Description:
The family of this 90-nucleotide RNA sequence from Tepidimonas charontis is "Burkholderia RNA 7 (anti-hemB)". A reference for the family is Weinberg et al. (2007), "Identification of 22 candidate structured RNAs in bacteria using the CMfinder comparative genomics pipeline", Nucleic Acids Res. By type it is a small RNA. Rfam 15.1 lists 479 matches to the family in 458 species. This RNA motif was identified by computational search in b-proteobacteria Burkholderia. The source organism's lineage runs through Bacteria, Pseudomonadati, Betaproteobacteria, Burkholderiales and Tepidimonas.
[Rfam]
RNA sequence: UCCCCGCUUUUCCUCCCUGAGCGGGUGCCUUUGUGUGUGACAGCAUAAGGCUUGAAGCCCCGGUUGCCUUUAGCACCGGGGCUCUUUUUU
Numbered sequence: 001u002c003c004c005c006g007c008u009u010u011u012c013c014u015c016c017c018u019g020a021g022c023g024g025g026u027g028c029c030u031u032u033g034u035g036u037g038u039g040a041c042a043g044c045a046u047a048a049g050g051c052u053u054g055a056a057g058c059c060c061c062g063g064u065u066g067c068c069u070u071u072a073g074c075a076c077c078g079g080g081g082c083u084c085u086u087u088u089u090u
Stems, first nucleotide, its partner, number of pairs: 003025006027051004032045002057082008